[Rfam]
RNA sequence: AGUAAGCGCGUUAAGGAUUGAAACGGCAUCCUUUUUAUGCUUAUCGUAUGGCUAAUUAUAGGAUACUAAAACAAGUUUAGCAUAAAAAGAUACAGUGGAAAGCCUGUUAAAAC
Numbered sequence: 001a002g003u004a005a006g007c008g009c010g011u012u013a014a015g016g017a018u019u020g021a022a023a024c025g026g027c028a029u030c031c032u033u034u035u036u037a038u039g040c041u042u043a044u045c046g047u048a049u050g051g052c053u054a055a056u057u058a059u060a061g062g063a064u065a066c067u068a069a070a071a072c073a074a075g076u077u078u079a080g081c082a083u084a085a086a087a088a089g090a091u092a093c094a095g096u097g098g099a100a101a102g103c104c105u106g107u108u109a110a111a112a113c
Base pairs, nucleotide, nucleotide: 014105015104016103018101019100023096024095028091029090030089034086035085036084037083038082039081040080041079